Rfam assigns this 80-nucleotide RNA from Drosophila busckii to the family "mir-932 microRNA precursor family". For this family Rfam cites "Evolutionary flux of canonical microRNAs and mirtrons in Drosophila" (Berezikov et al., Nat Genet, 2010). The match comes from Rfam's covariance-model search (59 bits). Rfam links the family to the GO terms miRNA-mediated post-transcriptional gene silencing and RISC complex. The source organism's lineage runs through Eukaryota, Eremoneura, Acalyptratae, Drosophilinae and Dorsilopha.
RNA sequence: CAUGACUUUCAAUUCCGUAGUGCAUUGCAGUUUGAAUUUUAAAAAGUAAUUGCAAUCAUAGCGGAAUUGGUAGUUCUUUU
Numbered sequence: 001c002a003u004g005a006c007u008u009u010c011a012a013u014u015c016c017g018u019a020g021u022g023c024a025u026u027g028c029a030g031u032u033u034g035a036a037u038u039u040u041a042a043a044a045a046g047u048a049a050u051u052g053c054a055a056u057c058a059u060a061g062c063g064g065a066a067u068u069g070g071u072a073g074u075u076c077u078u079u080u
Stems, first nucleotide, its partner, number of pairs: 006073002009070003014065005021058002025055005